[Rfam]
RNA: c-di-GMP-I riboswitch aptamer
RNA sequence: AAACUAAAUCGGCAAAACUAGAGAAAUUUAGUGACGCAAAGCUAUAGGGACUAAGAUUUAUAAAAUUCUUAUAAAUUAUGCCAGCCAGUUGCCAAA
Numbered sequence: 001a002a003a004c005u006a007a008a009u010c011g012g013c014a015a016a017a018c019u020a021g022a023g024a025a026a027u028u029u030a031g032u033g034a035c036g037c038a039a040a041g042c043u044a045u046a047g048g049g050a051c052u053a054a055g056a057u058u059u060a061u062a063a064a065a066u067u068c069u070u071a072u073a074a075a076u077u078a079u080g081c082c083a084g085c086c087a088g089u090u091g092c093c094a095a096a
Base pairs, nucleotide, nucleotide: 012037013036017032018031019030020029021028022027040090041089042088043087047086048085049082051080056076057075058074059073060072061071062070063069